[Rfam]
RNA sequence: UGGCAACAGGGACCUGGAAACGAGGGACUCCGUGAGGAAGAGGACGCCAAAGGAUGGUCGACCGCUAAUAAAGACAAAAGGAGUCAAAUUCUUCCGAUCAGGGAACCUGCCGCGUCAGGAUCGAAGGUAAGUGUCCGAAAUGGGACAAGAAUUAAGCCAACAUCAAAUAUAUGUAGGACAAUUAAAAGAGGCUUUAAAGAUACGAGGAGUAAAGGUUAAAGGUAAUGAUUUGUUUAAAUUUUUGAUUUUGUAAAGACACUUGCCCUU
Numbered sequence: 001u002g003g004c005a006a007c008a009g010g011g012a013c014c015u016g017g018a019a020a021c022g023a024g025g026g027a028c029u030c031c032g033u034g035a036g037g038a039a040g041a042g043g044a045c046g047c048c049a050a051a052g053g054a055u056g057g058u059c060g061a062c063c064g065c066u067a068a069u070a071a072a073g074a075c076a077a078a079a080g081g082a083g084u085c086a087a088a089u090u091c092u093u094c095c096g097a098u099c100a101g102g103g104a105a106c107c108u109g110c111c112g113c114g115u116c117a118g119g120a121u122c123g124a125a126g127g128u129a130a131g132u133g134u135c136c137g138a139a140a141u142g143g144g145a146c147a148a149g150a151a152u153u154a155a156g157c158c159a160a161c162a163u164c165a166a167a168u169a170u171a172u173g174u175a176g177g178a179c180a181a182u183u184a185a186a187a188g189a190g191g192c193u194u195u196a197a198a199g200a201u202a203c204g205a206g207g208a209g210u211a212a213a214g215g216u217u218a219a220a221g222g223u224a225a226u227g228a229u230u231u232g233u234u235u236a237a238a239u240u241u242u243u244g245a246u247u248u249u250g251u252a253a254a255g256a257c258a259c260u261u262g263c264c265c266u267u
Stems, first nucleotide, its partner, number of pairs: 001025001004024001031043001033041001083128003089124002093120001094118001098114001101111002131146002134144004153196003156192003203244004208240003213231006252267002255264001257262001
Background
The record is a 267-nucleotide RNA sequence from Macaca fascicularis, which matches "Mason-Pfizer monkey virus packaging signal" in Rfam. This family represents a group of sequences that are related to the Mason-Pfizer monkey virus (MPMV) packaging signal. The packaging signal is located in the 5' UTR and is required for specific RNA encapsidation. The family's consensus secondary structure was predicted with PFOLD. Taxonomically the source falls in Macaca (Eukaryota, Amniota, Eutheria, Cercopithecinae). A search with the family's covariance model found it, with a score of 184 bits. On this family, see Mustafa et al., Virus Res 2004: "Mutational analysis of the predicted secondary RNA structure of the Mason-Pfizer monkey virus packaging signal".